[Rfam]
Rfam assigns this 63-nucleotide sequence from Otolemur garnettii to the family "U7 small nuclear RNA". Animal histone pre-mRNAs are spliced by a different mechanism than nuclear pre-mRNAs and self-splicing introns. The match comes from Rfam's covariance-model search (40 bits). The base pairs follow the family's consensus structure, which was predicted with PFOLD. The source organism's lineage runs through Eukaryota, Bilateria, Euteleostomi, Tetrapoda and Otolemur.
RNA sequence: AAGUGUUAGAGCUCUUUUAGAAUUCAUCCAGCAGGAUUUUUGGUCCUCACUGCAACAGCCCUU
Numbered sequence: 001a002a003g004u005g006u007u008a009g010a011g012c013u014c015u016u017u018u019a020g021a022a023u024u025c026a027u028c029c030a031g032c033a034g035g036a037u038u039u040u041u042g043g044u045c046c047u048c049a050c051u052g053c054a055a056c057a058g059c060c061c062u063u
Stems, first nucleotide, its partner, number of pairs: 034060002037057001038055002041052004